[Rfam]
About this RNA: Shown here is a 95-nucleotide RNA sequence from Cebus imitator, a member of the family "Y RNA". The base pairs follow the family's consensus structure, which is taken from published work. By type it is a non-coding RNA gene. Lineage of the source: Eukaryota > Bilateria > Vertebrata > Platyrrhini > Cebus.
RNA sequence: GGCUUGUCUGAUGGUAGUGGGUUAUCAGAACUUAUUAACAUUAGAAUCACUAAAGUUGGCAUACAACCCCCCACUGCUAAAUUAGACUGGCUAAA
Numbered sequence: 001g002g003c004u005u006g007u008c009u010g011a012u013g014g015u016a017g018u019g020g021g022u023u024a025u026c027a028g029a030a031c032u033u034a035u036u037a038a039c040a041u042u043a044g045a046a047u048c049a050c051u052a053a054a055g056u057u058g059g060c061a062u063a064c065a066a067c068c069c070c071c072c073a074c075u076g077c078u079a080a081a082u083u084a085g086a087c088u089g090g091c092u093a094a095a
Stems, first nucleotide, its partner, number of pairs: 002091003006087003011083001015079001016075006033061001035059001037057002
Dot-bracket structure: .(((.(((..(...(((((((...........(.(.((.................)).).)........))))))...)...).))).)))....